[Rfam]
RNA: ALIL pseudoknot
Organism: Pseudonocardia oroxyli
RNA sequence: GGCUUUCUUCGCGGCGGAGCUCGACCGCCCCAGCAGGUAGUCCUCGACUACAUCGAGGCGAACAAGAACGAUUUCGGGGUCGAGCCGAUCUGCGCGGUGUUGGAGGACGCAGGCGUGAAGAUCGCUCCG
Numbered sequence: 001g002g003c004u005u006u007c008u009u010c011g012c013g014g015c016g017g018a019g020c021u022c023g024a025c026c027g028c029c030c031c032a033g034c035a036g037g038u039a040g041u042c043c044u045c046g047a048c049u050a051c052a053u054c055g056a057g058g059c060g061a062a063c064a065a066g067a068a069c070g071a072u073u074u075c076g077g078g079g080u081c082g083a084g085c086c087g088a089u090c091u092g093c094g095c096g097g098u099g100u101u102g103g104a105g106g107a108c109g110c111a112g113g114c115g116u117g118a119a120g121a122u123c124g125c126u127c128c129g
Stems, first nucleotide, its partner, number of pairs: 013029005075129005086124002089121003093117003